Shown here is a 155-nucleotide RNA from Marinisporobacter balticus, a member of the family "M-box riboswitch aptamer (ykoK leader)". It scores 98 bits against the family's covariance model. Pairs were carried over by alignment from the consensus structure.

RNA sequence: UCAAUAGCAUGUUAGGUGAGGAUCCUAUUGUGAUAUACGCUGAUGCCCAGAAAUGUGGAGACACGCCAAUGGGUUAACAAGUAUAACUAAGGUUAUAUUUAAUGCAGCUGACAAAAGUCAAAGUGCAAUAGUGCUAAAGCUCAACAUAGAAAAAU
Dot-bracket structure: .........((([.(((..((...((((((((......((((..(((((....((((....))))....))))).....((((..((..].))..)))).....)))).(((....)))....))))))))..))...)))..))....).....